[Rfam]
Nucleotides: 154
Stems, first nucleotide, its partner, number of pairs: 001024001027132006037048002049117003057079004082111004
Number, partner (000 for none) and nucleotide at each position: 001024c002000g003000u004000c005000a006000c007000u008000g009000u010000c011000c012000g013000c014000c015000g016000u017000g018000g019000c020000a021000g022000c023000c024001g025000g026000a027132g028131c029130c030129g031128g032127g033000g034000a035000c036000c037048c038047a039000c040000c041000g042000a043000g044000a045000c046000u047038u048037g049117g050116g051115g052000u053000g054000a055000a056000u057079c058078g059077g060076c061000c062000c063000a064000c065000u066000c067000u068000u069000c070000g071000g072000a073000g074000c075000g076060g077059c078058c079057g080000u081000a082111g083110g084109g085108c086000a087000a088000c089000c090000c091000u092000u093000c094000c095000g096000a097000u098000c099000a100000a101000g102000a103000c104000a105000c106000c107000c108085g109084c110083c111082c112000g113000a114000a115051c116050c117049c118000g119000a120000c121000a122000g123000c124000u125000a126000a127032c128031c129030c130029g131028g132027u133000a134000g135000g136000c137000g138000g139000a140000g141000c142000a143000c144000u145000g146000g147000a148000a149000g150000g151000a152000g153000u154000c
A member of the RNA family "c-di-AMP riboswitch aptamer (ydaO/yuaA leader)" from Streptomyces pseudogriseolus, 154 nucleotides long. The match comes from Rfam's covariance-model search (70 bits). The base pairs follow the family's consensus structure. The source organism's lineage runs through Bacteria, Bacillati, Streptomycetaceae, Streptomyces and Streptomyces pseudogriseolus.